The record is a 53-nucleotide sequence from Halocynthiibacter styelae, which matches "COG3860 RNA" in Rfam. It scores 57 bits against the family's covariance model. The family's RNA type in Rfam is cis-regulatory element. Taxonomically the source falls in Halocynthiibacter (Bacteria, Pseudomonadati, Pseudomonadota, Rhodobacterales).
RNA sequence: CGGUCCACAGUUCACCGAGGCGUCGCCGGGAUUCACCCACGCUAAACCUGCGA
Numbered sequence: 001c002g003g004u005c006c007a008c009a010g011u012u013c014a015c016c017g018a019g020g021c022g023u024c025g026c027c028g029g030g031a032u033u034c035a036c037c038c039a040c041g042c043u044a045a046a047c048c049u050g051c052g053a
Stems, first nucleotide, its partner, number of pairs: 001017004029038002